A member of the RNA family "mir-221 microRNA precursor family" from Aquarana catesbeiana, 83 nucleotides long. Pairs were carried over by alignment from the consensus structure, which was predicted with RNAalifold. It scores 75 bits against the family's covariance model. Rfam links the family to the GO terms miRNA-mediated post-transcriptional gene silencing and RISC complex. The organism belongs to Aquarana, within Eukaryota. The literature on the family includes a 2009 paper in BMC Genomics by Soares et al., "Parallel DNA pyrosequencing unveils new zebrafish microRNAs".
RNA sequence: GGUGUUGGUCGCUCAGUAACCAGUGUAGAUCCUGUUUUAGAUUUCAGCAGCUACAUCUGGCUACUGGGUCUCUGACACUACUG
Numbered sequence: 001g002g003u004g005u006u007g008g009u010c011g012c013u014c015a016g017u018a019a020c021c022a023g024u025g026u027a028g029a030u031c032c033u034g035u036u037u038u039a040g041a042u043u044u045c046a047g048c049a050g051c052u053a054c055a056u057c058u059g060g061c062u063a064c065u066g067g068g069u070c071u072c073u074g075a076c077a078c079u080a081c082u083g
Stems, first nucleotide, its partner, number of pairs: 013067006020060003023056006032050004